[Rfam]
RNA sequence: UGAGAAAAAGGCAAAUCUGUCGAAAGACAGGGACGCAAAGUCACAGGCCUGUCGUCAUUUUCAGUGACUACGGCGGCUGGGCUGCCUAAG
Numbered sequence: 001u002g003a004g005a006a007a008a009a010g011g012c013a014a015a016u017c018u019g020u021c022g023a024a025a026g027a028c029a030g031g032g033a034c035g036c037a038a039a040g041u042c043a044c045a046g047g048c049c050u051g052u053c054g055u056c057a058u059u060u061u062c063a064g065u066g067a068c069u070a071c072g073g074c075g076g077c078u079g080g081g082c083u084g085c086c087u088a089a090g
Stems, first nucleotide, its partner, number of pairs: 001090001003087002011036002016031006034076001039083004044079003047074003
Dot-bracket structure: (.((......((...((((((....))))))..[))..((((.((((((......................))).])))))))..))..)
Annotation:
This 90-nucleotide RNA from Salibacterium qingdaonense belongs to the Rfam family "c-di-GMP-I-GGC riboswitch aptamer". The organism belongs to Salibacterium, within Bacteria.